[Rfam]
A member of the RNA family "Makes More Granules Regulator RNA (mmgR)" from Lichenibacterium ramalinae, 71 nucleotides long.
Rfam's curators write: SuhB later renamed mmgR (makes more granules regulator) was a putative non-coding RNA found multiple times in the Agrobacterium tumefaciens genome and related alpha-proteobacteria.
Pairs were carried over by alignment from the consensus structure.
A search with the family's covariance model found it, with a score of 52 bits.

RNA sequence: GGCGCACGCCCACAUGGGCGUUUCCUCCCAAGACUUGGGCCGCCCUCCGGGCGGCUUUUUUGUUUUAAUCG
Numbered sequence: 001g002g003c004g005c006a007c008g009c010c011c012a013c014a015u016g017g018g019c020g021u022u023u024c025c026u027c028c029c030a031a032g033a034c035u036u037g038g039g040c041c042g043c044c045c046u047c048c049g050g051g052c053g054g055c056u057u058u059u060u061u062g063u064u065u066u067a068a069u070c071g
Base pairs, nucleotide, nucleotide: 008019009018010017011016038056039055040054041053042052043051044050045049